[Rfam]
RNA: DUF3800-XI RNA
RNA sequence: UGGGCGGGCCGAAAGCCCCUGGUUCACCGAACGGCGGGAAAUUUCCCC
Numbered sequence: 001u002g003g004g005c006g007g008g009c010c011g012a013a014a015g016c017c018c019c020u021g022g023u024u025c026a027c028c029g030a031a032c033g034g035c036g037g038g039a040a041a042u043u044u045c046c047c048c
Stems, first nucleotide, its partner, number of pairs: 001026005007018002010015001